[Rfam]
RNA sequence: GGCACAAACUCGAAGUAUGGUAGGUUAGCAGGGUCAGAUGAACCUCCUGAUCUACUCUACUUCAAAUGUGUGCCC
Numbered sequence: 001g002g003c004a005c006a007a008a009c010u011c012g013a014a015g016u017a018u019g020g021u022a023g024g025u026u027a028g029c030a031g032g033g034u035c036a037g038a039u040g041a042a043c044c045u046c047c048u049g050a051u052c053u054a055c056u057c058u059a060c061u062u063c064a065a066a067u068g069u070g071u072g073c074c075c
Base pairs, nucleotide, nucleotide: 001074002073003072004071005070006069008067012063013062014061015060016059017058019056020055021054022053023052025050026049027048028047030045032043034041035040
RNA: mir-5928 microRNA precursor family